[Rfam]
RNA sequence: CCCACCACUGACCUGACCAGUAUGGUUGGCUGGUACAAUAUAGUAGUGAACUGACAGUGAGCCCCAGCUUUCAGGGAAUGGGGCUGUCCUACAUAUGAAUGUUGAAAGCAUGGGAACACCC
Number, nucleotide and partner (000 for none) at each position: 001c000002c000003c000004a000005c046006c000007a044008c043009u042010g041011a000012c000013c000014u000015g000016a034017c033018c032019a031020g030021u028022a027023u000024g000025g000026u000027u022028g021029g000030c020031u019032g018033g017034u016035a000036c000037a000038a000039u000040a000041u010042a009043g008044u007045a000046g005047u000048g000049a000050a000051c000052u000053g000054a000055c000056a000057g000058u000059g000060a000061g000062c114063c113064c112065c000066a111067g109068c108069u107070u106071u000072c000073a000074g103075g102076g000077a000078a000079u000080g000081g000082g000083g000084c000085u000086g000087u099088c000089c097090u000091a000092c000093a000094u000095a000096u000097g089098a000099a087100u000101g000102u075103u074104g000105a000106a070107a069108g068109c067110a000111u066112g064113g063114g062115a000116a000117c000118a000119c000120c000121c000
Small nucleolar RNA SNORA65: a 121-nucleotide sequence. Gene Ontology terms of the family: RNA processing and nucleolus. For this family Rfam cites "RNomics: an experimental approach that identifies 201 candidates for novel, small, non-messenger RNAs in mouse" (Huttenhofer et al., EMBO J, 2001). The family's consensus secondary structure was predicted with RNAalifold. Rfam classes the family as an H/ACA-box small nucleolar RNA. About the family: U65 belongs to the H/ACA class of snoRNAs which are thought to guide the sites of modification of uridines to pseudouridines.